[Rfam]
RNA sequence: UCCUCGUCCGACAAAUCGCUAUCGAAGCUUACAAACGGAGACGGCCUCAAAACCGUCUCGGCUCUUCGCGAGCCAGCCUCAGGCUUUGGGAGAAAGUCCCCGGACACACGUUACUUCUGCCCUUUCGGGGGUGGGAGCAGAAACGCCGCGGAAACGCGCCGCCAUAGAAGCACAGCGGCUGACCUCCAAGACCUGCGCCCGGACGUAAUGGCUCUCCCCCUCCGCCCUGCCCCGUCGCUACAUCGCCGCGGUCCUCUGUACCCGUCUUGAGACCCCGUCUCCCGGGUUCCGGGCCCCCAAUGGACGAAGAUAUGAGUCCGCGCCUGGGAUCCGGGGAUGGUGUGUUCUUGGUCGGGACGAGAGGGCCCUUUGAUGACGGGGUGGCCGCGCGGGGAGGUCGCUUGCCGGGCGAAUUCAAGGGUCGGUCGGAGGACCUUUCGUCGAGAUCGAGAGUUAUGCGAUUGCUCGUCCUUUCGGGGACGGGAUUACUCGAUGGGGCUUAUUCUUGGUGCGAGG
Numbered sequence: 001u002c003c004u005c006g007u008c009c010g011a012c013a014a015a016u017c018g019c020u021a022u023c024g025a026a027g028c029u030u031a032c033a034a035a036c037g038g039a040g041a042c043g044g045c046c047u048c049a050a051a052a053c054c055g056u057c058u059c060g061g062c063u064c065u066u067c068g069c070g071a072g073c074c075a076g077c078c079u080c081a082g083g084c085u086u087u088g089g090g091a092g093a094a095a096g097u098c099c100c101c102g103g104a105c106a107c108a109c110g111u112u113a114c115u116u117c118u119g120c121c122c123u124u125u126c127g128g129g130g131g132u133g134g135g136a137g138c139a140g141a142a143a144c145g146c147c148g149c150g151g152a153a154a155c156g157c158g159c160c161g162c163c164a165u166a167g168a169a170g171c172a173c174a175g176c177g178g179c180u181g182a183c184c185u186c187c188a189a190g191a192c193c194u195g196c197g198c199c200c201g202g203a204c205g206u207a208a209u210g211g212c213u214c215u216c217c218c219c220c221u222c223c224g225c226c227c228u229g230c231c232c233c234g235u236c237g238c239u240a241c242a243u244c245g246c247c248g249c250g251g252u253c254c255u256c257u258g259u260a261c262c263c264g265u266c267u268u269g270a271g272a273c274c275c276c277g278u279c280u281c282c283c284g285g286g287u288u289c290c291g292g293g294c295c296c297c298c299a300a301u302g303g304a305c306g307a308a309g310a311u312a313u314g315a316g317u318c319c320g321c322g323c324c325u326g327g328g329a330u331c332c333g334g335g336g337a338u339g340g341u342g343u344g345u346u347c348u349u350g351g352u353c354g355g356g357a358c359g360a361g362a363g364g365g366c367c368c369u370u371u372g373a374u375g376a377c378g379g380g381g382u383g384g385c386c387g388c389g390c391g392g393g394g395a396g397g398u399c400g401c402u403u404g405c406c407g408g409g410c411g412a413a414u415u416c417a418a419g420g421g422u423c424g425g426u427c428g429g430a431g432g433a434c435c436u437u438u439c440g441u442c443g444a445g446a447u448c449g450a451g452a453g454u455u456a457u458g459c460g461a462u463u464g465c466u467c468g469u470c471c472u473u474u475c476g477g478g479g480a481c482g483g484g485a486u487u488a489c490u491c492g493a494u495g496g497g498g499c500u501u502a503u504u505c506u507u508g509g510u511g512c513g514a515g516g
Base pairs, nucleotide, nucleotide: 002516003515004514005513006512007511008509009508010507011506014463015462016461017460018459019458022090023088024087025086026085027084028083038059039058040057041056042055043054044053094501095500096499098498099497100496101495396435397434398433402431403430405429406428407427408426410424411423412422465484466483467482468481469480470479471478